[Rfam]
RNA: Group I catalytic intron
Organism: Coleofasciculus sp. FACHB-SPT36
RNA sequence: UUGCGGUAGCUUAGAUUUUGCCGCCUAACCUGGGAACAGGUUAGAUAGUCAGAGGGUGAAUUGCUGGAAGCCUAAACACCCAAAAAGGUGCAAGGUAAUCAGCAGCCAAGCUCCAGAUGUAAGGCAGGUAGCCCCAGAGCUGGAGAAGGUUCAGAGACUAGACCUGCGGGAAACCAAUAAUGGUCAGAUAGCGCCCUCCACCUAGACCAGGUGAAGAUAUAGUCCGAGACCACUAGAAAUAGUGGA
Number, nucleotide and partner (000 for none) at each position: 001u000002u000003g024004c023005g022006g021007u020008a019009g018010c000011u000012u000013a000014g000015a000016u000017u000018u009019u008020g007021c006022c005023g004024c003025c000026u000027a000028a000029c040030c039031u038032g000033g000034g000035a000036a000037c000038a031039g030040g029041u000042u000043a000044g000045a000046u000047a000048g000049u000050c000051a000052g198053a197054g196055g195056g000057u193058g192059a000060a000061u000062u104063g103064c102065u101066g100067g099068a000069a000070g000071c095072c094073u093074a000075a000076a000077c000078a000079c000080c000081c000082a000083a000084a000085a000086a000087g000088g000089u000090g000091c000092a000093a073094g072095g071096u000097a000098a000099u067100c066101a065102g064103c063104a062105g150106c149107c000108a000109a000110g000111c000112u143113c142114c000115a000116g000117a000118u000119g000120u000121a000122a000123g000124g000125c000126a000127g000128g000129u000130a000131g000132c000133c000134c000135c000136a000137g000138a000139g000140c000141u000142g113143g112144a000145g000146a000147a000148g000149g106150u105151u000152c000153a000154g225155a000156g224157a223158c222159u221160a220161g000162a000163c000164c000165u000166g000167c000168g000169g000170g000171a000172a000173a000174c000175c000176a000177a000178u000179a000180a000181u000182g000183g000184u000185c000186a000187g000188a000189u000190a000191g000192c058193g057194c000195c055196c054197u053198c052199c000200a000201c211202c210203u209204a000205g000206a000207c000208c000209a203210g202211g201212u000213g000214a000215a000216g000217a000218u000219a000220u160221a159222g158223u157224c156225c154226g000227a000228g000229a000230c000231c244232a243233c242234u241235a240236g000237a000238a000239a000240u235241a234242g233243u232244g231245g000246a000